[Rfam]
This 130-nucleotide sequence from Macleaya cordata belongs to the Rfam family "Small nucleolar RNA snoR74".
RNA sequence: AAAAAAGCAGGGAUCUGUUGCCUUUGUGAACUGGUCUCUUGUAUACUUCAGGGAAAUCAUUUCAUUGUUAUUGGGUGAGCCUCCGUAGAUAAUACAAUUAUCAGAAGGCUCAGUAAAUGAUGAUACAAAU
Numbered sequence: 001a002a003a004a005a006a007g008c009a010g011g012g013a014u015c016u017g018u019u020g021c022c023u024u025u026g027u028g029a030a031c032u033g034g035u036c037u038c039u040u041g042u043a044u045a046c047u048u049c050a051g052g053g054a055a056a057u058c059a060u061u062u063c064a065u066u067g068u069u070a071u072u073g074g075g076u077g078a079g080c081c082u083c084c085g086u087a088g089a090u091a092a093u094a095c096a097a098u099u100a101u102c103a104g105a106a107g108g109c110u111c112a113g114u115a116a117a118u119g120a121u122g123a124u125a126c127a128a129a130u
Stems, first nucleotide, its partner, number of pairs: 005048003011037002014034002017031001062123008076112007

NCBI's taxonomy places the organism under Eukaryota, Streptophytina, Tracheophyta, Mesangiospermae, Macleaya.